The record is a 262-nucleotide sequence from Dulcicalothrix desertica, which matches "HNH endonuclease-associated RNA and ORF (HEARO) RNA" in Rfam. A reference for the family is Weinberg et al. (2009), "Exceptional structured noncoding RNAs revealed by bacterial metagenome analysis", Nature. Rfam classes the family as a non-coding RNA gene. The organism belongs to Dulcicalothrix desertica, within Bacteria.

RNA sequence: GUGACGACUCCACACGCUAACUGCUUGCAGUAUAGCGUCGGCUUCUAGAAGGAAACUUUUAGAGGUUCGUCAUUAGCCUCAGUAUUCCGUAAUGCAAGGGAUACUACGUUUAUUCAGAAUGUAUAGGCACUCCAGAAUGUAAGGGGUAGCGCCCUGUCUUAUAGUUUUGGACACUGCGGUUAGCGAUUAAACAUCCCUACUUGGUAGAGGGGAAGUGUUGCUGACAAGAAACCUGGGUAAACAUUGGCGAAGAAGACCACCC
Numbered sequence: 001g002u003g004a005c006g007a008c009u010c011c012a013c014a015c016g017c018u019a020a021c022u023g024c025u026u027g028c029a030g031u032a033u034a035g036c037g038u039c040g041g042c043u044u045c046u047a048g049a050a051g052g053a054a055a056c057u058u059u060u061a062g063a064g065g066u067u068c069g070u071c072a073u074u075a076g077c078c079u080c081a082g083u084a085u086u087c088c089g090u091a092a093u094g095c096a097a098g099g100g101a102u103a104c105u106a107c108g109u110u111u112a113u114u115c116a117g118a119a120u121g122u123a124u125a126g127g128c129a130c131u132c133c134a135g136a137a138u139g140u141a142a143g144g145g146g147u148a149g150c151g152c153c154c155u156g157u158c159u160u161a162u163a164g165u166u167u168u169g170g171a172c173a174c175u176g177c178g179g180u181u182a183g184c185g186a187u188u189a190a191a192c193a194u195c196c197c198u199a200c201u202u203g204g205u206a207g208a209g210g211g212g213a214a215g216u217g218u219u220g221c222u223g224a225c226a227a228g229a230a231a232c233c234u235g236g237g238u239a240a241a242c243a244u245u246g247g248c249g250a251a252g253a254a255g256a257c258c259a260c261c262c
Stems, first nucleotide, its partner, number of pairs: 001073007010041002012038002042051003076248003081105008108242010127177002131171008139258001179225009191216002194213005200207001